The family of this 79-nucleotide RNA sequence from Paractinoplanes rishiriensis is "c-di-GMP-I-GGC riboswitch aptamer". The family's consensus secondary structure is taken from published work. NCBI's taxonomy places the organism under Bacteria, Bacillati, Micromonosporales, Micromonosporaceae, Paractinoplanes.
RNA sequence: ACCCGAACAGGCAAACCCGUCGUGAGGCGGGGGCGCAAAGCCAGGGGCCUCCCUGCCGGAGGCAGCCCAGCCGCCGAAG
Numbered sequence: 001a002c003c004c005g006a007a008c009a010g011g012c013a014a015a016c017c018c019g020u021c022g023u024g025a026g027g028c029g030g031g032g033g034c035g036c037a038a039a040g041c042c043a044g045g046g047g048c049c050u051c052c053c054u055g056c057c058g059g060a061g062g063c064a065g066c067c068c069a070g071c072c073g074c075c076g077a078a079g
Stems, first nucleotide, its partner, number of pairs: 003076001011036002016031006034065001040071002044068003047063003